[Rfam]
RNA sequence: AUCCCCCUGCUUCACCGAAACCUUGCGUACCACGCGAGGCACUUUAUAGGUGAAGUGGGGGGAU
Number, nucleotide and partner (000 for none) at each position: 001a064002u063003c062004c061005c060006c059007c058008u057009g056010c055011u054012u053013c052014a051015c050016c049017g000018a000019a000020a000021c039022c038023u037024u036025g035026c034027g033028u032029a000030c000031c000032a028033c027034g026035c025036g024037a023038g022039g021040c000041a000042c000043u000044u000045u000046a000047u000048a000049g016050g015051u014052g013053a012054a011055g010056u009057g008058g007059g006060g005061g004062g003063a002064u001